[Rfam]
RNA sequence: AAAAUAUUAAAGAAAAAAAAGGAAUGCAGUUUCUCAUUUGCUAUGGAAAUGACCAUUAAAAAAAAAAAAGUUCCCACUAGGUUUUCUAUGAGCUACUUUACCAGCGAUCAACUUACUGGGAACAUUU
Numbered sequence: 001a002a003a004a005u006a007u008u009a010a011a012g013a014a015a016a017a018a019a020a021g022g023a024a025u026g027c028a029g030u031u032u033c034u035c036a037u038u039u040g041c042u043a044u045g046g047a048a049a050u051g052a053c054c055a056u057u058a059a060a061a062a063a064a065a066a067a068a069a070g071u072u073c074c075c076a077c078u079a080g081g082u083u084u085u086c087u088a089u090g091a092g093c094u095a096c097u098u099u100a101c102c103a104g105c106g107a108u109c110a111a112c113u114u115a116c117u118g119g120g121a122a123c124a125u126u127u
Stems, first nucleotide, its partner, number of pairs: 003050001007046003026041004073120004080113004092105002
The record is a 127-nucleotide sequence from Nannospalax galili, which matches "Small nucleolar RNA SNORA32" in Rfam. Rfam describes the family as follows. ACA32 is a member of the H/ACA class of snoRNA that guide the sites of modification of uridines to pseudouridines. Lineage of the source: Eukaryota > Bilateria > Mammalia > Eutheria > Nannospalax. It scores 72 bits against the family's covariance model.